[Rfam]
Shown here is a 126-nucleotide sequence from Vagococcus penaei, a member of the family "Ribosomal protein L10 leader". The family's RNA type in Rfam is cis-regulatory leader. It scores 82 bits against the family's covariance model. Its family is annotated with regulation of gene expression in the Gene Ontology.
RNA sequence: GUUAAUCUUAAUAACUAGCCGAAGACAGUAGGUGACGCAAGUCUUAAUUUCCUACCGAGGACCAUAUUGAAUGAAAUCAAUAGUCCCUCUAUGUCAACGGUGGCAUGGGGUUUUUUUUGUUGAAAA
Numbered sequence: 001g002u003u004a005a006u007c008u009u010a011a012u013a014a015c016u017a018g019c020c021g022a023a024g025a026c027a028g029u030a031g032g033u034g035a036c037g038c039a040a041g042u043c044u045u046a047a048u049u050u051c052c053u054a055c056c057g058a059g060g061a062c063c064a065u066a067u068u069g070a071a072u073g074a075a076a077u078c079a080a081u082a083g084u085c086c087c088u089c090u091a092u093g094u095c096a097a098c099g100g101u102g103g104c105a106u107g108g109g110g111u112u113u114u115u116u117u118u119g120u121u122g123a124a125a126a
Base pairs, nucleotide, nucleotide: 028055029054030053031052032051034043035042036041087110088109089108090107091106092105093104094103095102